[Rfam]
RNA sequence: AAUUAAGUGAAGCUGAAUCUGAGGUGCAAAGCCUUAGAACGGGGGAAACUUCUCGUGGGGUGAAUCGCAGUAUAUUGCGUAGGGCAUACACCUUUGCCCGAAUCCGUCAACUAACCUCGUAAGCAGAAAGGUGGUAAAAA
Numbered sequence: 001a002a003u004u005a006a007g008u009g010a011a012g013c014u015g016a017a018u019c020u021g022a023g024g025u026g027c028a029a030a031g032c033c034u035u036a037g038a039a040c041g042g043g044g045g046a047a048a049c050u051u052c053u054c055g056u057g058g059g060g061u062g063a064a065u066c067g068c069a070g071u072a073u074a075u076u077g078c079g080u081a082g083g084g085c086a087u088a089c090a091c092c093u094u095u096g097c098c099c100g101a102a103u104c105c106g107u108c109a110a111c112u113a114a115c116c117u118c119g120u121a122a123g124c125a126g127a128a129a130g131g132u133g134g135u136a137a138a139a140a
Stems, first nucleotide, its partner, number of pairs: 012124003018038008039120006049057001058105003066079004082099004
RNA: c-di-AMP riboswitch aptamer (ydaO/yuaA leader)
Organism: Desulfitobacterium dichloroeliminans